[Rfam]
RNA sequence: ACCGUCCUUGUCUUGGGGUGGCUUGGGCUAUUCAAUGAACGAAUAGUGAGAAUAUCCCUGCUAACACCAAUUCAACACAUCCAGCAUCACCCGGACAGUUAUUGUUCGGGCUAUGGUGCAAUUUUUGGAACC
Dot-bracket structure: .....((((.....))))..((....(.(((((.....((.....))..))))).)...))......................(((((((((((((((...)))))))))...)))))).............

Shown here is a 132-nucleotide RNA from Bagarius yarrelli, a member of the family "U4atac minor spliceosomal RNA". For this family Rfam cites "Evolution of spliceosomal snRNA genes in metazoan animals" (Marz et al., J Mol Evol, 2008). Lineage of the source: Eukaryota > Vertebrata > Gnathostomata > Siluroidei > Bagarius. Rfam describes the family as follows. U4atac is an essential component of the minor U12-type spliceosome complex which is required for removal of the rarer class of eukaryotic introns (AT-AC, U12-type).